The family of this 87-nucleotide RNA from Triticum turgidum is "MIR1120/MIR1122 microRNA precursor family". Pairs were carried over by alignment from the consensus structure, which was predicted with RNAalifold. The family has 6 seed sequences and 44,765 matches in Rfam 15.1. Gene Ontology terms of the family: miRNA-mediated post-transcriptional gene silencing and RISC complex. On this family, see Yao et al., Genome Biol 2007: "Cloning and characterization of microRNAs from wheat (Triticum aestivum L.)". Lineage of the source: Eukaryota > Tracheophyta > Mesangiospermae > commelinids > Triticum turgidum. The match comes from Rfam's covariance-model search (89 bits).
[Rfam]
RNA sequence: AUACUCCCUCCGUCCCAUAAUGUAAGACGUUUUUCGACACUACACUAGUGUAAAAAAACGUCUUAUAUUACGGGACGGAGGGAGUAC
Numbered sequence: 001a002u003a004c005u006c007c008c009u010c011c012g013u014c015c016c017a018u019a020a021u022g023u024a025a026g027a028c029g030u031u032u033u034u035c036g037a038c039a040c041u042a043c044a045c046u047a048g049u050g051u052a053a054a055a056a057a058a059c060g061u062c063u064u065a066u067a068u069u070a071c072g073g074g075a076c077g078g079a080g081g082g083a084g085u086a087c
Base pairs, nucleotide, nucleotide: 003085004084005083007081008080009079010078011077013075014074015073016072019069020068021067022066023065024064025063026062027061028060029059030058031057032056033055034054037051038050039049040048041047